[Rfam]
Shown here is a 99-nucleotide RNA from Equus asinus, a member of the family "mir-9058 microRNA precursor family".
RNA sequence: GUGGCUGCCGGAUGGGUGCUCUCUAUUAGUGGUGUGUGCAGAGGCUUUCGCUGAGGCUGCUGUGAGACAGUAGGGUUUCCCCCUAGGCUACGGAGCCGG
Number, nucleotide and partner (000 for none) at each position: 001g000002u098003g097004g096005c095006u094007g088008c087009c086010g084011g083012a000013u000014g082015g081016g080017u000018g078019c000020u000021c075022u074023c073024u072025a071026u070027u000028a000029g000030u069031g068032g000033u067034g000035u065036g000037u000038g063039c062040a061041g060042a000043g058044g057045c056046u055047u054048u053049c000050g000051c000052u000053g048054a047055g046056g045057c044058u043059g000060c041061u040062g039063u038064g000065a035066g000067a033068c031069a030070g026071u025072a024073g023074g022075g021076u000077u000078u018079c000080c016081c015082c014083c011084u010085a000086g009087g008088c007089u000090a000091c000092g000093g000094a006095g005096c004097c003098g002099g000